[Rfam]
RNA sequence: AUCUUCGAGGAUGAUGUGAAUGGAAAACAACUUUCCUUCUUCCGAGUAGGGUCGCGUACUCCGUGUGGAAAAUUUCAUGGAGACCUGAACUGAGAAGAU
Number, nucleotide and partner (000 for none) at each position: 001a000002u000003c097004u096005u095006c094007g000008a000009g000010g000011a000012u000013g000014a000015u000016g000017u000018g000019a000020a000021u000022g000023g000024a000025a000026a000027a000028c000029a000030a000031c000032u000033u000034u000035c000036c000037u000038u000039c000040u000041u000042c000043c000044g000045a000046g000047u000048a000049g000050g000051g000052u000053c000054g000055c000056g000057u000058a000059c000060u000061c000062c000063g000064u000065g000066u000067g000068g000069a000070a000071a000072a000073u000074u000075u000076c000077a000078u000079g000080g000081a000082g000083a000084c000085c000086u000087g000088a000089a000090c000091u000092g000093a000094g006095a005096a004097g003098a000099u000
The record is a 99-nucleotide sequence from Colocasia esculenta, which matches "Small nucleolar RNA Z159/U59" in Rfam. NCBI's taxonomy places the organism under Eukaryota, Euphyllophyta, Mesangiospermae, Colocasieae, Colocasia. Rfam classes the family as a C/D-box small nucleolar RNA. The family is grouped with related families in Rfam's "SNORD59 clan". Pairs were carried over by alignment from the consensus structure, which was predicted with PFOLD.